[Rfam]
RNA: chrB-b RNA
RNA sequence: UCGGGCAUCAUUGCAGUCGCCCGACGACCUCAGGCAUUUCGCCCAAGUACUGC
Numbered sequence: 001u002c003g004g005g006c007a008u009c010a011u012u013g014c015a016g017u018c019g020c021c022c023g024a025c026g027a028c029c030u031c032a033g034g035c036a037u038u039u040c041g042c043c044c045a046a047g048u049a050c051u052g053c
Stems, first nucleotide, its partner, number of pairs: 001024006013053005033043003